Record summary:
Rfam assigns this 83-nucleotide sequence from Cupriavidus necator to the family "Burkholderia RNA 7 (anti-hemB)". This RNA motif was identified by computational search in b-proteobacteria Burkholderia. Co-purified with Hfq, expression confirmed by Northern blot. Its family is annotated with bacterial biofilm matrix and protein binding in the Gene Ontology. For this family Rfam cites "Experimental identification of small non-coding regulatory RNAs in the opportunistic human pathogen Burkholderia cenocepacia J2315" (Ramos et al., Genomics, 2013).
RNA sequence: UCCCCCGCUACUCCUCCCUGAGCGGGUACCCGCCCCAGCGGCGGGAAAGUUUGUCCCCGUUGCUUGCAGCGGGGCUUUUUUUU
Numbered sequence: 001u002c003c004c005c006c007g008c009u010a011c012u013c014c015u016c017c018c019u020g021a022g023c024g025g026g027u028a029c030c031c032g033c034c035c036c037a038g039c040g041g042c043g044g045g046a047a048a049g050u051u052u053g054u055c056c057c058c059g060u061u062g063c064u065u066g067c068a069g070c071g072g073g074g075c076u077u078u079u080u081u082u083u
Stems, first nucleotide, its partner, number of pairs: 004026006029045006055074008